[Rfam]
Rfam assigns this 130-nucleotide RNA from Zootermopsis nevadensis to the family "Small Cajal body specific RNA 8".
NCBI's taxonomy places the organism under Eukaryota, Dicondylia, Blattodea, Blattoidea, Zootermopsis.
Gene Ontology terms of the family: Cajal body, nucleolus and RNA processing.
Rfam's curators write: scaRNAs are a specific class of small nuclear RNAs which localise to the Cajal bodies and guide the modification of RNA polymerase II transcribed spliceosomal RNAs U1, U2, U4, U5 and U12. U92 belong to the H/ACA box class of guide RNAs as it has the predicted hairpin-hinge-hairpin-tail structure, conserved H/ACA-box motifs and is found associated with GAR1.
The family's consensus secondary structure is taken from published work.
RNA sequence: AGGGAGAAUGAUACACAAGUGUCUCUACGUCAUUGGUCACUUGUCACUAUUCUCCCAACAUGAACAUGUGCUUUCUGAUGACUGUAAUGUAUUGAGAUUUGAAUUACAGACAGAUACGGAGCAUACAUUG
Numbered sequence: 001a002g003g004g005a006g007a008a009u010g011a012u013a014c015a016c017a018a019g020u021g022u023c024u025c026u027a028c029g030u031c032a033u034u035g036g037u038c039a040c041u042u043g044u045c046a047c048u049a050u051u052c053u054c055c056c057a058a059c060a061u062g063a064a065c066a067u068g069u070g071c072u073u074u075c076u077g078a079u080g081a082c083u084g085u086a087a088u089g090u091a092u093u094g095a096g097a098u099u100u101g102a103a104u105u106a107c108a109g110a111c112a113g114a115u116a117c118g119g120a121g122c123a124u125a126c127a128u129u130g
Base pairs, nucleotide, nucleotide: 002056003055004054005053006052007051015044016043017042018041022036023035068124069123070122071121072120073119074118082109083108084107087104088103090101